[Rfam]
The family of this 84-nucleotide RNA from Ruminococcaceae bacterium BL-4 is "tRNA". Taxonomically the source falls in Oscillospiraceae (Bacteria, Bacillota, Clostridia, Eubacteriales). Its family is annotated with triplet codon-amino acid adaptor activity in the Gene Ontology.
RNA sequence: GCCGCUGUGGUGGAAUCGGCAGACACAAGGGACUUAAAAUCCCUCGGUAGCAAUACCGUACCAGUUCAAGUCUGGUCAGCGGCA
Numbered sequence: 001g002c003c004g005c006u007g008u009g010g011u012g013g014a015a016u017c018g019g020c021a022g023a024c025a026c027a028a029g030g031g032a033c034u035u036a037a038a039a040u041c042c043c044u045c046g047g048u049a050g051c052a053a054u055a056c057c058g059u060a061c062c063a064g065u066u067c068a069a070g071u072c073u074g075g076u077c078a079g080c081g082g083c084a
Stems, first nucleotide, its partner, number of pairs: 001083007010026003028044005060076005